[Rfam]
RNA sequence: ACGGAUAAGGGCAAACUUGUCGAAAGGCAAGGACGCAAAGCCAUGGGUCUUCGGAUGGUUAUUCACCGUCACAGAUCGCCAGGCUGCAGGAG
Numbered sequence: 001a002c003g004g005a006u007a008a009g010g011g012c013a014a015a016c017u018u019g020u021c022g023a024a025a026g027g028c029a030a031g032g033a034c035g036c037a038a039a040g041c042c043a044u045g046g047g048u049c050u051u052c053g054g055a056u057g058g059u060u061a062u063u064c065a066c067c068g069u070c071a072c073a074g075a076u077c078g079c080c081a082g083g084c085u086g087c088a089g090g091a092g
Base pairs, nucleotide, nucleotide: 011036012035016031017030018029019028020027021026034078039085040084041083042082044081045080046079047076048075049074
Source information:
Rfam assigns this 92-nucleotide RNA from Tumebacillus algifaecis to the family "c-di-GMP-I-GGC riboswitch aptamer". The base pairs follow the family's consensus structure, which is taken from published work. The match comes from Rfam's covariance-model search (64 bits).